A member of the RNA family "SAM-I/IV (S-adenosyl methionine) riboswitch aptamer" from Brucella anthropi, 110 nucleotides long. Its Rfam clan is "SAM clan". A reference for the family is Weinberg et al. (2008), "The aptamer core of SAM-IV riboswitches mimics the ligand-binding site of SAM-I riboswitches", RNA.
RNA sequence: ACAUCACAUCAAGAGUUGGGGAGACGCCCAACGCCAACCUGCCUCUCCGGGCAAGGUGGUACUCUCUGUAAAGAGAGGAUGUGGCCAAACCGGCAAAUAUACGGACAAAG
Number, nucleotide and partner (000 for none) at each position: 001a000002c000003a000004u000005c000006a082007c081008a080009u079010c078011a000012a000013g000014a000015g032016u031017u030018g029019g028020g027021g000022a000023g000024a000025c000026g000027c020028c019029c018030a017031a016032c015033g060034c059035c058036a000037a000038c056039c055040u054041g052042c051043c050044u000045c000046u105047c104048c103049g102050g043051g042052c041053a000054a040055g039056g038057u000058g035059g034060u033061a000062c000063u000064c000065u000066c000067u000068g000069u000070a000071a000072a000073g000074a000075g000076a000077g000078g010079a009080u008081g007082u006083g000084g094085c093086c092087a000088a000089a000090c000091c000092g086093g085094c084095a000096a000097a000098u000099a000100u000101a000102c049103g048104g047105a046106c000107a000108a000109a000110g000